The family of this 72-nucleotide sequence from Corynebacterium sp. 366 is "tRNA". NCBI's taxonomy places the organism under Bacteria, Bacillati, Actinomycetes, Mycobacteriales, Corynebacterium. The family's consensus secondary structure is taken from published work. Rfam's curators write: Transfer RNA (tRNA) molecules are approximately 80 nucleotides in length.
[Rfam]
RNA sequence: GGUUCCAUAGCUCAGCGGGAGAGCGUUCCGUUCACACCGGAAAGGUCGCUGGUUCGAUCCCAGUUGGAACCA
Dot-bracket structure: (((((((..((((.......)))).(((((.......))))).....(((((.......)))))))))))).